[Rfam]
Rfam assigns this 88-nucleotide sequence from Homo sapiens to the family "mir-1287 microRNA precursor family".
Lineage of the source: Eukaryota > Tetrapoda > Amniota > Eutheria > Homo.

RNA sequence: GUUGUGCUGUCCAGGUGCUGGAUCAGUGGUUCGAGUCUGAGCCUUUAAAAGCCACUCUAGCCACAGAUGCAGUGAUUGGAGCCAUGAC
Numbered sequence: 001g002u003u004g005u006g007c008u009g010u011c012c013a014g015g016u017g018c019u020g021g022a023u024c025a026g027u028g029g030u031u032c033g034a035g036u037c038u039g040a041g042c043c044u045u046u047a048a049a050a051g052c053c054a055c056u057c058u059a060g061c062c063a064c065a066g067a068u069g070c071a072g073u074g075a076u077u078g079g080a081g082c083c084a085u086g087a088c
Base pairs, nucleotide, nucleotide: 001088002087003086004085005084006083010080011079012078013077014076016074017073018072019071020070022068023067024066026064027063028062029061030060031059033057034056035055036054039053041052042051